[Rfam]
malK-I RNA: a 180-nucleotide RNA sequence. It is annotated as a cis-regulatory element. Pairs were carried over by alignment from the consensus structure, which is taken from published work. It is one of the family's seed sequences.
RNA sequence: CUGACUGCGUAUACGGCUCUCCAUUUCUAAGUCGUAUACAGCUUUAAUAAGGAGGAAGUGUUCAUCCCCAGGCUCGGGGUGCGGCAGUGUGGAGACCUGUCGUAAUGCGGCGCGCUCUCUGCGGGCGGUCGCGAGGAUCUCUCAGGCGGAGGCCGGAGAUUCGGAGUCGGAAGUAUGGCA
Numbered sequence: 001c002u003g004a005c006u007g008c009g010u011a012u013a014c015g016g017c018u019c020u021c022c023a024u025u026u027c028u029a030a031g032u033c034g035u036a037u038a039c040a041g042c043u044u045u046a047a048u049a050a051g052g053a054g055g056a057a058g059u060g061u062u063c064a065u066c067c068c069c070a071g072g073c074u075c076g077g078g079g080u081g082c083g084g085c086a087g088u089g090u091g092g093a094g095a096c097c098u099g100u101c102g103u104a105a106u107g108c109g110g111c112g113c114g115c116u117c118u119c120u121g122c123g124g125g126c127g128g129u130c131g132c133g134a135g136g137a138u139c140u141c142u143c144a145g146g147c148g149g150a151g152g153c154c155g156g157a158g159a160u161u162c163g164g165a166g167u168c169g170g171a172a173g174u175a176u177g178g179c180a
Base pairs, nucleotide, nucleotide: 009039010038011037012036013035014034015033016032017031018030066079067078068077069076071168072167073166074165075164080104081103082102083101084100085099086098087097089096090095107132108131109130110129111128113127114126115125135162136161137160138159139158140157141156142155145154146153147152